[Rfam]
RNA sequence: GGGUGUCUUGCUGCGAGUUGCGGUGAGGCAGGUUCAUGCGAUGGUCGGGCCGCCACG
Numbered sequence: 001g002g003g004u005g006u007c008u009u010g011c012u013g014c015g016a017g018u019u020g021c022g023g024u025g026a027g028g029c030a031g032g033u034u035c036a037u038g039c040g041a042u043g044g045u046c047g048g049g050c051c052g053c054c055a056c057g
Stems, first nucleotide, its partner, number of pairs: 005029008039057002042055004